[Rfam]
RNA sequence: UACGAGCUACGAUGUACGUAAUGAUAACUAAGUUUUAACCUUUAUACUAUAAAAGGGAGUUUUACAUUGAAACAGGGAUAUCAUGCCUCCAUGUAGAGGAAGAUAGAAGUGUUUCUGCAGACACCCACUUAGAGAAGUGGUGGUUUAAAACUUUCUUACGUGAUUUACGGCAAUUGUGGCUUUUGA
Numbered sequence: 001u002a003c004g005a006g007c008u009a010c011g012a013u014g015u016a017c018g019u020a021a022u023g024a025u026a027a028c029u030a031a032g033u034u035u036u037a038a039c040c041u042u043u044a045u046a047c048u049a050u051a052a053a054a055g056g057g058a059g060u061u062u063u064a065c066a067u068u069g070a071a072a073c074a075g076g077g078a079u080a081u082c083a084u085g086c087c088u089c090c091a092u093g094u095a096g097a098g099g100a101a102g103a104u105a106g107a108a109g110u111g112u113u114u115c116u117g118c119a120g121a122c123a124c125c126c127a128c129u130u131a132g133a134g135a136a137g138u139g140g141u142g143g144u145u146u147a148a149a150a151c152u153u154u155c156u157u158a159c160g161u162g163a164u165u166u167a168c169g170g171c172a173a174u175u176g177u178g179g180c181u182u183u184u185g186a
Stems, first nucleotide, its partner, number of pairs: 002184001004182008013172003017169003031152004036147003039143002055126003059122004066116001069115006081103002086099004
The record is a 186-nucleotide RNA from Aquibacillus halophilus, which matches "6S / SsrS RNA" in Rfam. Taxonomically the source falls in Aquibacillus (Bacteria, Bacillota, Bacilli, Bacillaceae). Rfam classes the family as a non-coding RNA gene. The match comes from Rfam's covariance-model search (97 bits). The base pairs follow the family's consensus structure, which is taken from published work. For this family Rfam cites "6S RNA regulates E. coli RNA polymerase activity" (Wassarman and Storz, Cell, 2000).